[Rfam]
RNA sequence: UCGUGCUAGAUGGGGAGUUAGCGGUGCCCUGUAACCUGCAAUCCGCUAUAGCAGGAUUGAAUUCCUCGAUUAGGCUAUAAUACUGUGGGGUCUGGCCCAUAUAAGUGGCGUUGAGAAUUGGGUCCCACGCAACGAAAACUCAUGAACCCCGUCAGGUCCGGAAGGAAGCAGCGGUAAGUGAUCAUUUUCGUGUGCCGUGGAUAAACCUGGUUUGAGUUAACUGUAUGGGUAACGCUCAUAGUUUAUCAGACAAAGCGAGGUGCACGA
Numbered sequence: 001u002c003g004u005g006c007u008a009g010a011u012g013g014g015g016a017g018u019u020a021g022c023g024g025u026g027c028c029c030u031g032u033a034a035c036c037u038g039c040a041a042u043c044c045g046c047u048a049u050a051g052c053a054g055g056a057u058u059g060a061a062u063u064c065c066u067c068g069a070u071u072a073g074g075c076u077a078u079a080a081u082a083c084u085g086u087g088g089g090g091u092c093u094g095g096c097c098c099a100u101a102u103a104a105g106u107g108g109c110g111u112u113g114a115g116a117a118u119u120g121g122g123u124c125c126c127a128c129g130c131a132a133c134g135a136a137a138a139c140u141c142a143u144g145a146a147c148c149c150c151g152u153c154a155g156g157u158c159c160g161g162a163a164g165g166a167a168g169c170a171g172c173g174g175u176a177a178g179u180g181a182u183c184a185u186u187u188u189c190g191u192g193u194g195c196c197g198u199g200g201a202u203a204a205a206c207c208u209g210g211u212u213u214g215a216g217u218u219a220a221c222u223g224u225a226u227g228g229g230u231a232a233c234g235c236u237c238a239u240a241g242u243u244u245a246u247c248a249g250a251c252a253a254a255g256c257g258a259g260g261u262g263c264a265c266g267a
Stems, first nucleotide, its partner, number of pairs: 001267006009058003012030004017025003035055005064260005070254001073251001075249002080244001082242008093231002097228006105221002107218003115213009125200005130192002133190005140181004149174004157166003